Rfam assigns this 284-nucleotide RNA sequence from Rhizopus stolonifer to the family "Nuclear RNase P". The source organism's lineage runs through Eukaryota, Mucoromycotina, Mucoromycetes, Mucorales and Rhizopus. Rfam describes the family as follows. Ribonuclease P (RNase P) is a ubiquitous endoribonuclease, found in archaea, bacteria and eukarya as well as chloroplasts and mitochondria. A search with the family's covariance model found it, with a score of 121 bits.

RNA sequence: GGAGGUAGCAAGCUUAUGUAUACGGGCAAACAUACAAAAAGAUUUAUUCUUUAAUAAAACCCGUGGGAAGGUCUGAGAAAAGCCGCUAAAUAUCUUUGCUGGAUAACCUGUGAAAACGGGGGCAGUGCUACCAGAAAAUAUGAUCUUGUUUCCAUAUAACCCAUGAUCUUUUGAUUGAGGUUGGGCUCAAGUUUAUUGUAACGGUCUGUGGGUGAAAAUGCUAUGAAGUGCAAUACAUGAGACUGGUUUUACCAGUAACUCAAUUCAGACUACUCUGUUUUUCC
Number, nucleotide and partner (000 for none) at each position: 001g284002g283003a282004g281005g000006u000007a000008g278009c277010a276011a000012g000013c241014u240015u239016a238017u237018g236019u235020a000021u000022a064023c063024g062025g061026g060027c000028a000029a000030a000031c000032a000033u000034a000035c000036a000037a000038a052039a051040a050041g049042a048043u000044u000045u000046a000047u000048u042049c041050u040051u039052u038053a000054a000055u000056a000057a000058a000059a000060c026061c025062c024063g023064u022065g000066g000067g000068a000069a000070g000071g000072u000073c268074u267075g266076a265077g264078a000079a000080a000081a187082g186083c185084c184085g000086c000087u000088a000089a000090a000091u105092a104093u103094c102095u101096u000097u000098g000099c000100u000101g095102g094103a093104u092105a091106a000107c120108c119109u118110g117111u116112g000113a000114a000115a000116a111117c110118g109119g108120g107121g000122g000123c183124a182125g181126u180127g000128c000129u177130a000131c000132c000133a000134g000135a000136a000137a000138a000139u000140a000141u000142g000143a000144u000145c000146u000147u000148g000149u000150u000151u000152c000153c000154a000155u000156a000157u000158a000159a000160c000161c000162c000163a000164u000165g000166a000167u000168c000169u000170u000171u000172u000173g000174a000175u000176u000177g129178a000179g000180g126181u125182u124183g123184g084185g083186c082187u081188c000189a000190a000191g000192u000193u000194u000195a000196u000197u000198g000199u000200a000201a000202c000203g000204g000205u000206c000207u000208g000209u000210g000211g000212g000213u000214g000215a000216a000217a000218a000219u000220g000221c000222u000223a000224u000225g000226a000227a000228g000229u000230g000231c000232a000233a000234u000235a019236c018237a017238u016239g015240a014241g013242a256243c255244u254245g253246g252247u000248u000249u000250u000251a000252c246253c245254a244255g243256u242257a000258a000259c000260u000261c000262a000263a000264u077265u076266c075267a074268g073269a000270c000271u000272a000273c000274u000275c000276u010277g009278u008279u000280u000281u004282u003283c002284c001